A member of the RNA family "ASpks TB sRNA" from Streptomyces zhaozhouensis, 75 nucleotides long. The match comes from Rfam's covariance-model search (77 bits). Rfam classes the family as an antisense RNA. On this family, see Arnvig and Young, Mol Microbiol 2009: "Identification of small RNAs in Mycobacterium tuberculosis". NCBI's taxonomy places the organism under Bacteria, Bacillati, Actinomycetes, Streptomycetaceae, Streptomyces.
RNA sequence: CUUCAGCGAGCCGAGCCACAGCGGCUCGCCCUCGCCCCUGCCCUGGCCAUAGGUCGCCAGCAGCGCCUGCGCCUC
Numbered sequence: 001c002u003u004c005a006g007c008g009a010g011c012c013g014a015g016c017c018a019c020a021g022c023g024g025c026u027c028g029c030c031c032u033c034g035c036c037c038c039u040g041c042c043c044u045g046g047c048c049a050u051a052g053g054u055c056g057c058c059a060g061c062a063g064c065g066c067c068u069g070c071g072c073c074u075c
Stems, first nucleotide, its partner, number of pairs: 014026004031071001033069001038065001043060003047056001049054001